The family of this 87-nucleotide RNA sequence from Bicyclus anynana is "mir-274 microRNA precursor family". The organism belongs to Bicyclus, within Eukaryota. The literature on the family includes a 2007 paper in Genome Res by Ruby et al., "Evolution, biogenesis, expression, and target predictions of a substantially expanded set of Drosophila microRNAs". The family's consensus secondary structure was predicted with RNAalifold. It scores 59 bits against the family's covariance model. Rfam links the family to the GO terms RISC complex and miRNA-mediated post-transcriptional gene silencing.

[Rfam]
RNA sequence: UGUCAGCGAUGUUGGUUUGUGACCGUCACUAACGGGCAGUAAUGCGUAUUUGCUCGUUUUGCCGAUCGCAAAAUGAACUCGUUUGAC
Numbered sequence: 001u002g003u004c005a006g007c008g009a010u011g012u013u014g015g016u017u018u019g020u021g022a023c024c025g026u027c028a029c030u031a032a033c034g035g036g037c038a039g040u041a042a043u044g045c046g047u048a049u050u051u052g053c054u055c056g057u058u059u060u061g062c063c064g065a066u067c068g069c070a071a072a073a074u075g076a077a078c079u080c081g082u083u084u085g086a087c
Stems, first nucleotide, its partner, number of pairs: 003086003006082004012076003016072007024064002031058008